[Rfam]
A member of the RNA family "Bacterial RNase P class A" from Tenacibaculum soleae, 311 nucleotides long. It is annotated as a ribozyme.

RNA sequence: AAAGCAACCCAAUCUUAUCGACUUGUAUUUAGUAUAAGUAGGAAAGUCUGGACACCAUAGAGUAGCAUAGCGGAUAACGUCCGUCCGGUGUAAACCGAGGACAAGUGCAGCAGAAAGUAUGUACAGGUAAUGCUGUAGUGAAACCAGGUAAACUCUAUGCGGUGCAAUGCCAUGUACAUUAGAGUUCGAGCGCUACUCGCGCGAUUCUAAGGGGUAGGCAGAUUGAUUUUACAAGCAAUUGUAAAACUAGAUAAAUGAUAAGAGCCUUAUUUUUUAGGGAACAGAAUCCAGCUUAUAGGGUUGCUUUUUUU
Numbered sequence: 001a002a003a004g005c006a007a008c009c010c011a012a013u014c015u016u017a018u019c020g021a022c023u024u025g026u027a028u029u030u031a032g033u034a035u036a037a038g039u040a041g042g043a044a045a046g047u048c049u050g051g052a053c054a055c056c057a058u059a060g061a062g063u064a065g066c067a068u069a070g071c072g073g074a075u076a077a078c079g080u081c082c083g084u085c086c087g088g089u090g091u092a093a094a095c096c097g098a099g100g101a102c103a104a105g106u107g108c109a110g111c112a113g114a115a116a117g118u119a120u121g122u123a124c125a126g127g128u129a130a131u132g133c134u135g136u137a138g139u140g141a142a143a144c145c146a147g148g149u150a151a152a153c154u155c156u157a158u159g160c161g162g163u164g165c166a167a168u169g170c171c172a173u174g175u176a177c178a179u180u181a182g183a184g185u186u187c188g189a190g191c192g193c194u195a196c197u198c199g200c201g202c203g204a205u206u207c208u209a210a211g212g213g214g215u216a217g218g219c220a221g222a223u224u225g226a227u228u229u230u231a232c233a234a235g236c237a238a239u240u241g242u243a244a245a246a247c248u249a250g251a252u253a254a255a256u257g258a259u260a261a262g263a264g265c266c267u268u269a270u271u272u273u274u275u276a277g278g279g280a281a282c283a284g285a286a287u288c289c290a291g292c293u294u295a296u297a298g299g300g301u302u303g304c305u306u307u308u309u310u311u
Stems, first nucleotide, its partner, number of pairs: 001307010011296001013263007021039008044294003048291005053164004060198004065160005070084005085099001086097004100155002105153002107149002122137005168220004179210005190202004227246008
The match comes from Rfam's covariance-model search (206 bits). The base pairs follow the family's consensus structure, which is taken from published work.